[Rfam]
Rfam assigns this 95-nucleotide RNA sequence from Streptomyces sp. PBH53 to the family "Streptomyces RNA 3202". The base pairs follow the family's consensus structure. From the family's description: Identified by deep sequencing of transcriptome at the end of exponential growth phase. Appears smaller on northern blot than sequencing transcript. This indicates processing step.
RNA sequence: CCACGUCCCGACGCAAUCCCCCCCCGGCGCCGGGACCUUCCCGAGCCGGACUUCGGCGCCCACCCCCCCCCCGGGCGCCGGAGUCCGGCUUCUUC
Numbered sequence: 001c002c003a004c005g006u007c008c009c010g011a012c013g014c015a016a017u018c019c020c021c022c023c024c025c026g027g028c029g030c031c032g033g034g035a036c037c038u039u040c041c042c043g044a045g046c047c048g049g050a051c052u053u054c055g056g057c058g059c060c061c062a063c064c065c066c067c068c069c070c071c072c073g074g075g076c077g078c079c080g081g082a083g084u085c086c087g088g089c090u091u092c093u094u095c
Stems, first nucleotide, its partner, number of pairs: 005036006012029003043091010054080008
The organism belongs to Streptomyces, within Bacteria. Rfam classes the family as a small RNA. For this family Rfam cites "Deep sequencing-based identification of small non-coding RNAs in Streptomyces coelicolor" (Vockenhuber et al., RNA Biol, 2011).